A member of the RNA family "Small nucleolar RNA Z278" from Arachis hypogaea, 115 nucleotides long. The family's consensus secondary structure was predicted with PFOLD. The match comes from Rfam's covariance-model search (66 bits).

[Rfam]
RNA sequence: GCCUGUGAUGAUUCAACCUAACUGUUUGAGGUGUUGUGGAGCCAAGACCCUGUUUACAGGGAGAACCUACUUGGUGAAGCUACAUUCAUAUGACGUCAAUGGGUUCAACUGAGGC
Numbered sequence: 001g002c003c004u005g006u007g008a009u010g011a012u013u014c015a016a017c018c019u020a021a022c023u024g025u026u027u028g029a030g031g032u033g034u035u036g037u038g039g040a041g042c043c044a045a046g047a048c049c050c051u052g053u054u055u056a057c058a059g060g061g062a063g064a065a066c067c068u069a070c071u072u073g074g075u076g077a078a079g080c081u082a083c084a085u086u087c088a089u090a091u092g093a094c095g096u097c098a099a100u101g102g103g104u105u106c107a108a109c110u111g112a113g114g115c
Stems, first nucleotide, its partner, number of pairs: 001115003048061005

Its family is annotated with RNA processing and nucleolus in the Gene Ontology. snoZ278 is a C/D box small nucleolar RNA. Its methylation guide targets have not been reported. By type it is a C/D-box small nucleolar RNA. On this family, see Chen et al., Nucleic Acids Res 2003: "The high diversity of snoRNAs in plants: identification and comparative study of 120 snoRNA genes from Oryza sativa".